[Rfam]
RNA sequence: AGCCGUGUGAUAAACACAUAGCGAACUAUUCUUUCGCCUUUUACUAAAGAAUACCGUGUGUUUGUCACUUUAAACGGCAUACGAUUAUUUUUGGAAGGGGUCUUCAUAAAGAGGGCCU
Number, nucleotide and partner (000 for none) at each position: 001a000002g000003c077004c076005g075006u074007g000008u067009g066010a065011u064012a063013a062014a061015c060016a059017c058018a057019u000020a000021g000022c000023g000024a000025a000026c000027u053028a052029u051030u050031c049032u048033u047034u046035c000036g000037c000038c000039u000040u000041u000042u000043a000044c000045u000046a034047a033048a032049g031050a030051a029052u028053a027054c000055c000056g000057u018058g017059u016060g015061u014062u013063u012064g011065u010066c009067a008068c000069u000070u000071u000072a000073a000074a006075c005076g004077g003078c000079a000080u000081a000082c000083g000084a000085u000086u000087a000088u000089u000090u000091u000092u000093g000094g000095a118096a000097g000098g000099g117100g116101u115102c114103u113104u112105c000106a000107u000108a000109a000110a000111g000112a104113g103114g102115g101116c100117c099118u095
Rfam assigns this 118-nucleotide sequence from Abrus precatorius to the family "U5 spliceosomal RNA". Rfam links the family to the GO terms U5 snRNP and spliceosomal tri-snRNP complex assembly. Lineage of the source: Eukaryota > rosids > fabids > Fabaceae > Abrus. Rfam classes the family as a spliceosomal small nuclear RNA.